A member of the RNA family "Fluoride riboswitch aptamer (crcB RNA motif)" from Priestia veravalensis, 60 nucleotides long.

RNA sequence: AAAAUAUACGGCGAUGGAGUUCGCCAAAACUGCUGCAGAGCUAAUGACUCCUACCCAUAU
Numbered sequence: 001a002a003a004a005u006a007u008a009c010g011g012c013g014a015u016g017g018a019g020u021u022c023g024c025c026a027a028a029a030c031u032g033c034u035g036c037a038g039a040g041c042u043a044a045u046g047a048c049u050c051c052u053a054c055c056c057a058u059a060u
Base pairs, nucleotide, nucleotide: 010025011024012023013022016051017050018049019048020047021046032041033040034039
Dot-bracket structure: .........[[[[..((((((]]]]......(((....)))....)))))).........
On this family, see Ren et al., Nature 2012: "Fluoride ion encapsulation by Mg2+ ions and phosphates in a fluoride riboswitch".